RNA sequence: UUAAAUAGUUUAUUCCGAGUUAGUUUACCUAAGGUUGCAAAGCUAUGGGAACUAAACGAUGGGUGUAAAAGGAAACAAUUAUGCCUCCCGCUUGGAAAGGAAUUAAUAUAAUUUAUUAA
Numbered sequence: 001u002u003a004a005a006u007a008g009u010u011u012a013u014u015c016c017g018a019g020u021u022a023g024u025u026u027a028c029c030u031a032a033g034g035u036u037g038c039a040a041a042g043c044u045a046u047g048g049g050a051a052c053u054a055a056a057c058g059a060u061g062g063g064u065g066u067a068a069a070a071g072g073a074a075a076c077a078a079u080u081a082u083g084c085c086u087c088c089c090g091c092u093u094g095g096a097a098a099g100g101a102a103u104u105a106a107u108a109u110a111a112u113u114u115a116u117u118a119a
Base pairs, nucleotide, nucleotide: 003113004112006110011105012104013102014101015100016099019057020056021055023053025051026050028048029047033044034043035042036041061086062085063084064083065082066081067080068079071076087095088094
Shown here is a 119-nucleotide sequence from Sporotomaculum syntrophicum, a member of the family "Molybdenum/Tungsten riboswitch aptamer (Moco RNA motif)". The match comes from Rfam's covariance-model search (66 bits).